The record is a 399-nucleotide part of an RNA from Neolecta irregularis, which matches "Eukaryotic large subunit ribosomal RNA" in Rfam.
The match comes from Rfam's covariance-model search (3430 bits).
The family's consensus secondary structure is taken from published work.
Clan: LSU clan.
The organism belongs to Neolecta irregularis, within Eukaryota.
[Rfam]
RNA sequence: GAAUGUUACCGCAAUAGUAAUUCAACUUAGUACGAGAGGAACCGUUGAUUCGGAUACUUGGUGUUUGCGGCUGUCUGACCAGGCAGUGCCGCGAAGCUACCAUCCGCUGGAUUAUGGCUGAACGCCUCUAAGUCAGAAUCCAUGCUAGAAAGUGGUGAUGCUUACCCUCGCACAUGUGAGAUGAGUUCAAAUAGAGUUUAUUCUCCUGAACCACAGUAGGCAGACAAUGGCAUGUCAACUGGAAAAUGUUGAUAUGCUGGUUUGCGAAUUGCAAUUUGAAAUAUGCGCGAGGAUGAAUCCUUUGCAGACGACUUAAAUGAGGAACAGGGUAUUGUAAGCGGUAGAGUAGCCUUGUUGUUACGAUCCGCUGAGAUUAAGCCUUAUGUUCCCAAGAUUUGU
Dot-bracket structure: ....((((((((..((((.(.(((((.................))))).)(((((...(((....(((((((((((....))))))..)))))...)))..))))).(((....(((((...........)))))....))).))))....)))))))).......(((((.(...............................................................................................................).)))))...(((((.(..(.......)..).....(((((((((.((.....((((.(..(((((......)))))..)))))....))....)))..))))))...)))))..
Numbered sequence: 001g002a003a004u005g006u007u008a009c010c011g012c013a014a015u016a017g018u019a020a021u022u023c024a025a026c027u028u029a030g031u032a033c034g035a036g037a038g039g040a041a042c043c044g045u046u047g048a049u050u051c052g053g054a055u056a057c058u059u060g061g062u063g064u065u066u067g068c069g070g071c072u073g074u075c076u077g078a079c080c081a082g083g084c085a086g087u088g089c090c091g092c093g094a095a096g097c098u099a100c101c102a103u104c105c106g107c108u109g110g111a112u113u114a115u116g117g118c119u120g121a122a123c124g125c126c127u128c129u130a131a132g133u134c135a136g137a138a139u140c141c142a143u144g145c146u147a148g149a150a151a152g153u154g155g156u157g158a159u160g161c162u163u164a165c166c167c168u169c170g171c172a173c174a175u176g177u178g179a180g181a182u183g184a185g186u187u188c189a190a191a192u193a194g195a196g197u198u199u200a201u202u203c204u205c206c207u208g209a210a211c212c213a214c215a216g217u218a219g220g221c222a223g224a225c226a227a228u229g230g231c232a233u234g235u236c237a238a239c240u241g242g243a244a245a246a247u248g249u250u251g252a253u254a255u256g257c258u259g260g261u262u263u264g265c266g267a268a269u270u271g272c273a274a275u276u277u278g279a280a281a282u283a284u285g286c287g288c289g290a291g292g293a294u295g296a297a298u299c300c301u302u303u304g305c306a307g308a309c310g311a312c313u314u315a316a317a318u319g320a321g322g323a324a325c326a327g328g329g330u331a332u333u334g335u336a337a338g339c340g341g342u343a344g345a346g347u348a349g350c351c352u353u354g355u356u357g358u359u360a361c362g363a364u365c366c367g368c369u370g371a372g373a374u375u376a377a378g379c380c381u382u383a384u385g386u387u388c389c390c391a392a393g394a395u396u397u398g399u
Stems, first nucleotide, its partner, number of pairs: 005159008015147004020050001022048005051106005059099003066093005071086006108142003115135005167291005173285001295397005301315001304312001321389006327381003331374002338368004343364001346361005